The family of this 108-nucleotide sequence is "6S-Flavo RNA". The sequence is in the family's curated seed alignment. The base pairs follow the family's consensus structure, which is taken from published work.
RNA sequence: ACUCAACGAGUUAUUAAUUAAGAGUGGUGAGUUUCAAUUGUAAAAGCAAGCUGUCUUGAACAGAUCCUUGAUCAGUUGUGUAGCUACAAACCUGGUUUUAUGGAGUUU
Numbered sequence: 001a002c003u004c005a006a007c008g009a010g011u012u013a014u015u016a017a018u019u020a021a022g023a024g025u026g027g028u029g030a031g032u033u034u035c036a037a038u039u040g041u042a043a044a045a046g047c048a049a050g051c052u053g054u055c056u057u058g059a060a061c062a063g064a065u066c067c068u069u070g071a072u073c074a075g076u077u078g079u080g081u082a083g084c085u086a087c088a089a090a091c092c093u094g095g096u097u098u099u100a101u102g103g104a105g106u107u108u
Base pairs, nucleotide, nucleotide: 024087025086026085027084028083035078036077037076038075039074044069045068046067051063052062053061054060